[Rfam]
RNA sequence: UCCCGUCAGGAUCGCCCCCCGUCAGCGAGUUUCGCCCACGGGGGUGUUGGUG
Numbered sequence: 001u002c003c004c005g006u007c008a009g010g011a012u013c014g015c016c017c018c019c020c021g022u023c024a025g026c027g028a029g030u031u032u033c034g035c036c037c038a039c040g041g042g043g044g045u046g047u048u049g050g051u052g
Base pairs, nucleotide, nucleotide: 016044017043018042019041020040021039022038025035026034027033028032
RNA: ffh sRNA